[Rfam]
RNA sequence: AUCACGGCAACGUCAAUGAAAUCACAGUCUCGCCGAAAUUCGGUCAAUCGCGCGCCGCGGGCCGGCGGGAUCUUCAAUCGCGUAGCAGGGCCGGUUCGCGAGGCGCUCCGGCUAUCCCAGCCCCCCAGCCCCCCGGGGUGCGCGCGGACCGGCCACUGCUACGCACCGAAAUCAGACCCCCAAUAGGCCGCCUUCCGGGCGGCCUUCUU
Numbered sequence: 001a002u003c004a005c006g007g008c009a010a011c012g013u014c015a016a017u018g019a020a021a022u023c024a025c026a027g028u029c030u031c032g033c034c035g036a037a038a039u040u041c042g043g044u045c046a047a048u049c050g051c052g053c054g055c056c057g058c059g060g061g062c063c064g065g066c067g068g069g070a071u072c073u074u075c076a077a078u079c080g081c082g083u084a085g086c087a088g089g090g091c092c093g094g095u096u097c098g099c100g101a102g103g104c105g106c107u108c109c110g111g112c113u114a115u116c117c118c119a120g121c122c123c124c125c126c127a128g129c130c131c132c133c134c135g136g137g138g139u140g141c142g143c144g145c146g147g148a149c150c151g152g153c154c155a156c157u158g159c160u161a162c163g164c165a166c167c168g169a170a171a172u173c174a175g176a177c178c179c180c181c182a183a184u185a186g187g188c189c190g191c192c193u194u195c196c197g198g199g200c201g202g203c204c205u206u207c208u209u
Stems, first nucleotide, its partner, number of pairs: 035173002080164007089154011103141009120129002185205008
Dot-bracket structure: ..................................((...........................................(((((((..(((((((((((...(((((((((........((......))...)))))))))..)))))))))))...))))))).......))...........((((((((.....))))))))....